[Rfam]
Description: Shown here is a 64-nucleotide RNA sequence from Pipistrellus kuhlii, a member of the family "mir-9242 microRNA precursor family".
RNA sequence: GGCCUCUUUCUGUGGGGUGGUCGAUCUGGGGGCCCUCUGAUUGAUCGCCCCACAGAGGGAGGUC
Numbered sequence: 001g002g003c004c005u006c007u008u009u010c011u012g013u014g015g016g017g018u019g020g021u022c023g024a025u026c027u028g029g030g031g032g033c034c035c036u037c038u039g040a041u042u043g044a045u046c047g048c049c050c051c052a053c054a055g056a057g058g059g060a061g062g063u064c
Stems, first nucleotide, its partner, number of pairs: 001064026028037003
Dot-bracket structure: ((((((((((((((((((((((((((.(((....))).))))))))))))))))))))))))))